[Rfam]
RNA: c-di-AMP riboswitch aptamer (ydaO/yuaA leader)
Organism: Cohnella candida
RNA sequence: CAUAUUGAACAGCUUAGUUUCCGGCAAGAGCCGGGAAGCGGGGGAACCAAUUUUUUGGGGCGAAUCGGUCCGCGUUCAGGACCGUAGGGAACCAUCUAUCCCGAGUCCGUCAGCUAACCUCGUCAGCUUUGGAUGGGUCAGGC
Numbered sequence: 001c002a003u004a005u006u007g008a009a010c011a012g013c014u015u016a017g018u019u020u021c022c023g024g025c026a027a028g029a030g031c032c033g034g035g036a037a038g039c040g041g042g043g044g045a046a047c048c049a050a051u052u053u054u055u056u057g058g059g060g061c062g063a064a065u066c067g068g069u070c071c072g073c074g075u076u077c078a079g080g081a082c083c084g085u086a087g088g089g090a091a092c093c094a095u096c097u098a099u100c101c102c103g104a105g106u107c108c109g110u111c112a113g114c115u116a117a118c119c120u121c122g123u124c125a126g127c128u129u130u131g132g133a134u135g136g137g138u139c140a141g142g143c
Stems, first nucleotide, its partner, number of pairs: 011128004018037008038123006048057002058108003066084004087102004